[Rfam]
RNA sequence: GAGUUGUGGGUGCUGGCAAGGUUAAGUCCUUCAGGGACGGAGCCGAAGGGAAACCGAGUGUUAACAGCGCGAAUAAGUCAGUAUCUGCAGACCCGAAACCGGGUGAUCUAUCCAUGUCCAGGUUGAAGUUGCCGUAAAAGGCAAUGGAGGACCGAACGCACAUCCGUUGAAAAGGGUGGCGAUGAGGUGUGGAUAGGGGAGAAAUUCCAAUCGAACCCGGAGAUAGCUGGUU
Number, nucleotide and partner (000 for none) at each position: 001g000002a000003g000004u000005u089006g088007u087008g086009g085010g084011u083012g082013c081014u080015g079016g078017c077018a000019a000020g044021g043022u042023u041024a000025a000026g038027u037028c036029c000030u000031u000032c000033a000034g000035g000036g028037a027038c026039g000040g000041a023042g022043c021044c020045g000046a000047a000048g055049g054050g000051a000052a000053a000054c049055c048056g000057a000058g070059u069060g068061u067062u000063a000064a000065c000066a000067g061068c060069g059070c058071g000072a000073a000074u000075a000076a000077g017078u016079c015080a014081g013082u012083a011084u010085c009086u008087g007088c006089a005090g000091a000092c230093c229094c000095g227096a000097a000098a000099c220100c219101g218102g217103g216104u215105g000106a000107u000108c196109u195110a194111u193112c192113c191114a190115u189116g188117u187118c186119c184120a000121g153122g152123u151124u150125g000126a000127a000128g145129u144130u143131g142132c141133c140134g000135u000136a000137a000138a000139a000140g133141g132142c131143a130144a129145u128146g000147g000148a000149g000150g124151a123152c122153c121154g000155a000156a000157c181158g180159c179160a000161c178162a177163u176164c175165c174166g000167u000168u000169g000170a000171a000172a000173a000174g165175g164176g163177u162178g161179g159180c158181g157182a000183u000184g119185a000186g118187g117188u116189g115190u114191g113192g112193a111194u110195a109196g108197g000198g208199g207200a206201g000202a000203a000204a000205u000206u200207c199208c198209a000210a000211u000212c000213g000214a000215a104216c103217c102218c101219g100220g099221a000222g000223a000224u000225a000226g000227c095228u000229g093230g092231u000232u000
RNA: Bacterial large subunit ribosomal RNA, nucleotides 617 to 848